[Rfam]
This 80-nucleotide RNA sequence from Mola mola belongs to the Rfam family "Small nucleolar RNA SNORD71". The family has 18 seed sequences and 556 matches in Rfam 15.1. Pairs were carried over by alignment from the consensus structure, which was predicted with RNAalifold. Gene Ontology terms of the family: nucleolus and RNA processing. snoRNA HBII-239 belongs to the family of C/D snoRNAs.It is the human orthologue of the mouse MBII-239 described and is predicted to guide 2'O-ribose methylation of 5.8S rRNA on residue U14.
RNA sequence: GAAAUGCUGUAUGAUGAUAAAAUGAGUGAUCCAUCGUCUGAAGGACUAUGUUGAUGACAUUUAUUUUCUGACAGCAUUUG
Numbered sequence: 001g002a003a004a005u006g007c008u009g010u011a012u013g014a015u016g017a018u019a020a021a022a023u024g025a026g027u028g029a030u031c032c033a034u035c036g037u038c039u040g041a042a043g044g045a046c047u048a049u050g051u052u053g054a055u056g057a058c059a060u061u062u063a064u065u066u067u068c069u070g071a072c073a074g075c076a077u078u079u080g
Stems, first nucleotide, its partner, number of pairs: 002079007009069001013031003017027001034057005042049001
Dot-bracket structure: .((((((((...(((.(.........).)))..(((((...(......)...)))))...........)...))))))).